[Rfam]
RNA sequence: GGCGAUAAACGGACGUCGUAAUAAGCCUUUCGGACCCGGGGGCGGUACCCGGCGCCUCCACCACAGCCCUGCGGCGCGAGCGGCAGGAGACUUGCAGCCCUCGGGGUGCAGGGCUGCGGCGGGGGCGAAAUAGGAUCGACGAGGGUGUAAAGGCCGUCUUUUUGCCCGGUAUUGUUCCGCCGUUACAGGGCUAACGCAUAGUUGCCAACGACAACAAUGCUCGGGUUGCUGUCGCCGCGUAA
Numbered sequence: 001g002g003c004g005a006u007a008a009a010c011g012g013a014c015g016u017c018g019u020a021a022u023a024a025g026c027c028u029u030u031c032g033g034a035c036c037c038g039g040g041g042g043c044g045g046u047a048c049c050c051g052g053c054g055c056c057u058c059c060a061c062c063a064c065a066g067c068c069c070u071g072c073g074g075c076g077c078g079a080g081c082g083g084c085a086g087g088a089g090a091c092u093u094g095c096a097g098c099c100c101u102c103g104g105g106g107u108g109c110a111g112g113g114c115u116g117c118g119g120c121g122g123g124g125g126c127g128a129a130a131u132a133g134g135a136u137c138g139a140c141g142a143g144g145g146u147g148u149a150a151a152g153g154c155c156g157u158c159u160u161u162u163u164g165c166c167c168g169g170u171a172u173u174g175u176u177c178c179g180c181c182g183u184u185a186c187a188g189g190g191c192u193a194a195c196g197c198a199u200a201g202u203u204g205c206c207a208a209c210g211a212c213a214a215c216a217a218u219g220c221u222c223g224g225g226u227u228g229c230u231g232u233c234g235c236c237g238c239g240u241a242a
Stems, first nucleotide, its partner, number of pairs: 001166005014156002017153001026145003030142003036052005053127007167182004

This 242-nucleotide RNA sequence from Allobosea sp. WAO belongs to the Rfam family "permuted transfer-messenger RNA". Its family is annotated with RNA catabolic process in the Gene Ontology.